A member of the RNA family "Guanidine-II riboswitch aptamer (mini-ykkC)" from Roseimicrobium sp. ORNL1, 48 nucleotides long. The organism belongs to Roseimicrobium, within Bacteria. Simpler in structure and has fewer highly conserved nucleotide positions than the ykkC-yxkD leader. The match comes from Rfam's covariance-model search (37 bits).
RNA sequence: CAUCGAGGACGGCCUUGAUGUUUCCUUCGCAGACUAGGGACGACCCUG
Numbered sequence: 001c002a003u004c005g006a007g008g009a010c011g012g013c014c015u016u017g018a019u020g021u022u023u024c025c026u027u028c029g030c031a032g033a034c035u036a037g038g039g040a041c042g043a044c045c046c047u048g
Base pairs, nucleotide, nucleotide: 001020002019003018004017005016006015007014008013035048036047037046038045039044